This 292-nucleotide RNA from Trichonephila clavipes belongs to the Rfam family "Nuclear RNase P".
On this family, see Frank and Pace, Annu Rev Biochem 1998: "Ribonuclease P: unity and diversity in a tRNA processing ribozyme".
By type it is a ribozyme.
From the family's description: Ribonuclease P (RNase P) is a ubiquitous endoribonuclease, found in archaea, bacteria and eukarya as well as chloroplasts and mitochondria.
RNA sequence: UGUGGGGAGUUUGCGUGAGGGGCUACGAUCGUGCAUUUUUUGCACUAUUUGCCCUUGGGAAGGUCUGAGAUGAUGCCGCCUUUCGAGGAGGUCCGAGAUGGGCUCCCGUUCAAUUAGCGGGACGGGCACAGAGAAACGUCGUGCCUUGCGGUUUUGGUUGCGUAUGAAGCUCUAUCUGCCGACGCUCUUCUGCCGCAUAGUUUUGGGACAUGCUCGCGGCAAGAAUGCCAAAGCUCGAUAUGCAAAGCACCAUUCAUGGGGUGUAACACAAUUCAGACUACUCCCUCACGCA
Numbered sequence: 001u002g003u004g005g006g007g008a009g010u011u012u013g014c015g016u017g018a019g020g021g022g023c024u025a026c027g028a029u030c031g032u033g034c035a036u037u038u039u040u041u042g043c044a045c046u047a048u049u050u051g052c053c054c055u056u057g058g059g060a061a062g063g064u065c066u067g068a069g070a071u072g073a074u075g076c077c078g079c080c081u082u083u084c085g086a087g088g089a090g091g092u093c094c095g096a097g098a099u100g101g102g103c104u105c106c107c108g109u110u111c112a113a114u115u116a117g118c119g120g121g122a123c124g125g126g127c128a129c130a131g132a133g134a135a136a137c138g139u140c141g142u143g144c145c146u147u148g149c150g151g152u153u154u155u156g157g158u159u160g161c162g163u164a165u166g167a168a169g170c171u172c173u174a175u176c177u178g179c180c181g182a183c184g185c186u187c188u189u190c191u192g193c194c195g196c197a198u199a200g201u202u203u204u205g206g207g208a209c210a211u212g213c214u215c216g217c218g219g220c221a222a223g224a225a226u227g228c229c230a231a232a233g234c235u236c237g238a239u240a241u242g243c244a245a246a247g248c249a250c251c252a253u254u255c256a257u258g259g260g261g262u263g264u265a266a267c268a269c270a271a272u273u274c275a276g277a278c279u280a281c282u283c284c285c286u287c288a289c290g291c292a
Base pairs, nucleotide, nucleotide: 001292002291003290004289005286006285007284010246011245012244013243014242015241016240018056019055020054021053022052031045032044033043034042035041065276066275067274068273069272074221075220076219077218090104091103092102093101094100105121106120107119108118109117110116123216124215125214126213127212128211143201144200247264248263249262250261251260253258